[Rfam]
RNA sequence: AAUGAAUUGAUUCACCUGUGAUAUGGCGUGGCUGUUCCACUUAUGAUGAGGACAUGGCAUUCUAUUACCAGCCAUCACACAAAAUUAAUAGGAUGCCAUAUUCUCAUCUUAGGUGUAACAACCACGUCAUCUCACAGGUGAAUCCAUUUAUU
Dot-bracket structure: (((.(((.((((((((.((((.(((((.(((.((((..((.((.((....((....(((((((((((......((........)))))))))))))....))....)).)).))..)))).))).))))).)))).)))))))).))).)))

Description
A member of the RNA family "MIR807 microRNA precursor family" from Oryza nivara, 152 nucleotides long. NCBI's taxonomy places the organism under Eukaryota, Embryophyta, Euphyllophyta, Mesangiospermae, Oryza. On this family, see Luo et al., FEBS Lett 2006: "Rice embryogenic calli express a unique set of microRNAs, suggesting regulatory roles of microRNAs in plant post-embryogenic development". Its family is annotated with miRNA-mediated post-transcriptional gene silencing and RISC complex in the Gene Ontology.